[Rfam]
RNA sequence: UGCAAAUUGUUGAACAAGAGGAGUACACAUAUUUAUUUCUUUGCAGAGAAUCGGGGAUGGUGAGAACCCGAUAAGAAAGAAUUUGUGGAAUGGACUUGUGAGAGGUAUCUUGAACAAAAGUAGGGAUACACGGAGUUCUGCCGUUAAAAGGAUAGGAUAUCGAGCGAUUGCUCUGUAUCUGAAAUUGAGGAAGCAAUUAAUUUUUGCUUCAAACAGAGGUGGCACCACGACAAUAGAAUCGUCCUCUAU
Number, nucleotide and partner (000 for none) at each position: 001u000002g000003c000004a000005a000006a000007u103008u102009g000010u000011u000012g000013a000014a000015c098016a097017a096018g095019a000020g000021g000022a000023g000024u000025a000026c087027a086028c085029a084030u000031a082032u000033u000034u000035a000036u000037u000038u000039c075040u074041u073042u000043g000044c000045a000046g000047a000048g000049a000050a072051u071052c070053g069054g068055g067056g000057a000058u000059g000060g000061u000062g000063a000064g000065a000066a000067c055068c054069c053070g052071a051072u050073a041074a040075g039076a000077a000078a000079g000080a000081a000082u031083u000084u029085g028086u027087g026088g000089a000090a000091u000092g000093g000094a000095c018096u017097u016098g015099u000100g000101a000102g008103a007104g000105g129106u128107a127108u126109c125110u124111u123112g000113a000114a000115c000116a000117a000118a000119a000120g000121u000122a000123g111124g110125g109126a108127u107128a106129c105130a000131c143132g142133g141134a000135g000136u000137u000138c000139u000140g000141c133142c132143g131144u000145u000146a000147a000148a000149a000150g000151g000152a000153u000154a000155g000156g000157a000158u000159a000160u000161c000162g000163a000164g000165c000166g000167a000168u000169u000170g000171c000172u000173c000174u000175g000176u000177a000178u000179c000180u000181g000182a000183a000184a000185u000186u000187g000188a000189g000190g210191a209192a208193g207194c206195a205196a204197u000198u000199a000200a000201u000202u000203u000204u196205u195206g194207c193208u192209u191210c190211a000212a000213a000214c000215a000216g246217a245218g244219g243220u000221g000222g000223c000224a000225c000226c000227a242228c241229g240230a239231c000232a000233a000234u000235a000236g000237a000238a000239u230240c229241g228242u227243c219244c218245u217246c216247u000248a000249u000
RNA: T-box leader
Organism: Neobacillus vireti